[Rfam]
RNA sequence: AAAUCCAGAAAAGCGACGGACAACAUCCUUUUGUCCGUCGCUUUUCUGGGAUUUU
Numbered sequence: 001a002a003a004u005c006c007a008g009a010a011a012a013g014c015g016a017c018g019g020a021c022a023a024c025a026u027c028c029u030u031u032u033g034u035c036c037g038u039c040g041c042u043u044u045u046c047u048g049g050g051a052u053u054u055u
Base pairs, nucleotide, nucleotide: 001053002052004050005049006048007047008046009045010044011043012042013041014040015039016038017037018036019035020034021033
This 55-nucleotide RNA from Solanum commersonii belongs to the Rfam family "MIR8008 microRNA precursor family". NCBI's taxonomy places the organism under Eukaryota, Viridiplantae, Streptophytina, lamiids, Solanum. The match comes from Rfam's covariance-model search (67 bits).